RNA: Bacterial large subunit ribosomal RNA, nucleotides 857 to 1292
RNA sequence: CUCUCCGAAAUGCAUUUAGGUGCAGCGUUUGAUGAUUACUGACGGGGGUAAAGCACUGAAUUGGCUAGGGGGCUUACCAGCUUACCAAACCAUAUCAAACUCAGAAUACCGUUAAGUACAGUCAAGCAGUGAGACUAUGGAUGCUAAGGUCCAUAGUCGAAAGGGAAAGAGCCCAGACCGACAGUUAAGGUCCCUAAAUCGUGUCUAAGUGGGAAAGGUUGUGGAAUUACUUUGACAUCCAGGAGGUUGGCUUAGAAGCAGCCAUCCUUUAAAGAAAGCGUAAUAGCUCACUGGACUAGUGAUUCUGCGCCGAAAAUGUAACGGGGCUAAAGAUACGUACCGAAACUUCGGAAUUAUUUAUAAUUGGUAGGAGAGCAUUGUGUUUACUGAUGAAGGCGUACCGGCAAGGAGCGUUGGAGGCAUCACAAGAGCUGAU
Numbered sequence: 001c002u003c004u005c006c007g008a009a010a011u012g013c014a015u016u017u018a019g020g021u022g023c024a025g026c027g028u029u030u031g032a033u034g035a036u037u038a039c040u041g042a043c044g045g046g047g048g049u050a051a052a053g054c055a056c057u058g059a060a061u062u063g064g065c066u067a068g069g070g071g072g073c074u075u076a077c078c079a080g081c082u083u084a085c086c087a088a089a090c091c092a093u094a095u096c097a098a099a100c101u102c103a104g105a106a107u108a109c110c111g112u113u114a115a116g117u118a119c120a121g122u123c124a125a126g127c128a129g130u131g132a133g134a135c136u137a138u139g140g141a142u143g144c145u146a147a148g149g150u151c152c153a154u155a156g157u158c159g160a161a162a163g164g165g166a167a168a169g170a171g172c173c174c175a176g177a178c179c180g181a182c183a184g185u186u187a188a189g190g191u192c193c194c195u196a197a198a199u200c201g202u203g204u205c206u207a208a209g210u211g212g213g214a215a216a217g218g219u220u221g222u223g224g225a226a227u228u229a230c231u232u233u234g235a236c237a238u239c240c241a242g243g244a245g246g247u248u249g250g251c252u253u254a255g256a257a258g259c260a261g262c263c264a265u266c267c268u269u270u271a272a273a274g275a276a277a278g279c280g281u282a283a284u285a286g287c288u289c290a291c292u293g294g295a296c297u298a299g300u301g302a303u304u305c306u307g308c309g310c311c312g313a314a315a316a317u318g319u320a321a322c323g324g325g326g327c328u329a330a331a332g333a334u335a336c337g338u339a340c341c342g343a344a345a346c347u348u349c350g351g352a353a354u355u356a357u358u359u360a361u362a363a364u365u366g367g368u369a370g371g372a373g374a375g376c377a378u379u380g381u382g383u384u385u386a387c388u389g390a391u392g393a394a395g396g397c398g399u400a401c402c403g404g405c406a407a408g409g410a411g412c413g414u415u416g417g418a419g420g421c422a423u424c425a426c427a428a429g430a431g432c433u434g435a436u
Base pairs, nucleotide, nucleotide: 001375002374003373004372005371006370011024012023013022014021015020026129027127028126029125030124031123032122033121036120037118038117039116040114041113042112043111044110045109052101053100057097058096059095062092063091064090068086069085070083071082072081073080074079133158134157135156136155137154138153139152140151141150142149163174164173165172178351179350180349181348183347184346185345189341190340191339198338200337201336202335203334204333205332217311218310219309221308222307223306224305225304226303227302228301229300230299238295239294240293241292242291244268245267246266249263250262251261269273274289278287279286352365353364354363355362356361376431378428379427380426381425382424384422387420388419395415396414397413398412399411401409402408